Notes:
Shown here is a 61-nucleotide RNA from Pristionchus pacificus, a member of the family "mir-8364 microRNA precursor family".
RNA sequence: UCUUCAUUUCACACACUCUCUCGGCCGGUUGAUUGGCGAGAGAGUGUGUGAAAUGAAGAGA
Number, nucleotide and partner (000 for none) at each position: 001u059002c058003u057004u056005c055006a054007u053008u000009u000010c050011a000012c048013a047014c046015a045016c044017u043018c000019u041020c040021u039022c038023g000024g000025c000026c000027g000028g000029u000030u000031g000032a000033u000034u000035g000036g000037c000038g022039a021040g020041a019042g000043a017044g016045u015046g014047u013048g012049u000050g010051a000052a000053a007054u006055g005056a004057a003058g002059a001060g000061a000

The family's consensus secondary structure was predicted with RNAalifold.